[Rfam]
RNA sequence: GGUUGGCAGAGUCCUACCCCCACCUCCACGUGGUGCUGACUGGAAACGGAAUUCCGGUUCCGGUCAACGGGGGAGG
Numbered sequence: 001g002g003u004u005g006g007c008a009g010a011g012u013c014c015u016a017c018c019c020c021c022a023c024c025u026c027c028a029c030g031u032g033g034u035g036c037u038g039a040c041u042g043g044a045a046a047c048g049g050a051a052u053u054c055c056g057g058u059u060c061c062g063g064u065c066a067a068c069g070g071g072g073g074a075g076g
Stems, first nucleotide, its partner, number of pairs: 013076003017072004022034003041062005047056003
The record is a 76-nucleotide sequence from Acyrthosiphon pisum, which matches "drz-agam-1 ribozyme" in Rfam.
For this family Rfam cites "Widespread occurrence of self-cleaving ribozymes" (Webb et al., Science, 2009).
Its family is annotated with catalytic activity in the Gene Ontology.
Taxonomically the source falls in Acyrthosiphon (Eukaryota, Bilateria, Ecdysozoa, Aphididae).